[Rfam]
This 159-nucleotide RNA from Serratia fonticola belongs to the Rfam family "sok antitoxin (CssrC)". Rfam 15.1 lists 305 matches to the family in 167 species. The match comes from Rfam's covariance-model search (91 bits). The base pairs follow the family's consensus structure, which is taken from published work. Also identified in Shigella as CssrC. NCBI's taxonomy places the organism under Bacteria, Pseudomonadati, Pseudomonadota, Gammaproteobacteria, Serratia.

RNA sequence: GGGUGCUCUGGAUCUUUGUAUCUGGAGCCAAAAGCCAAGGUGAUGGAUACAAAGAGAAAAGCCCCGAGUCGAUAACAUCAACCCGAGGCCAACUCUAACGCCAGACAACGUUAGGUUAGCUUCUUACCUGCCGAGAGGCAAGGAGAAGGAAACGCAAUG
Numbered sequence: 001g002g003g004u005g006c007u008c009u010g011g012a013u014c015u016u017u018g019u020a021u022c023u024g025g026a027g028c029c030a031a032a033a034g035c036c037a038a039g040g041u042g043a044u045g046g047a048u049a050c051a052a053a054g055a056g057a058a059a060a061g062c063c064c065c066g067a068g069u070c071g072a073u074a075a076c077a078u079c080a081a082c083c084c085g086a087g088g089c090c091a092a093c094u095c096u097a098a099c100g101c102c103a104g105a106c107a108a109c110g111u112u113a114g115g116u117u118a119g120c121u122u123c124u125u126a127c128c129u130g131c132c133g134a135g136a137g138g139c140a141a142g143g144a145g146a147a148g149g150a151a152a153c154g155c156a157a158u159g
Stems, first nucleotide, its partner, number of pairs: 001065003005062003009059001013055012027041002066084001068082002071079002085123005092117001094115007127149003131145001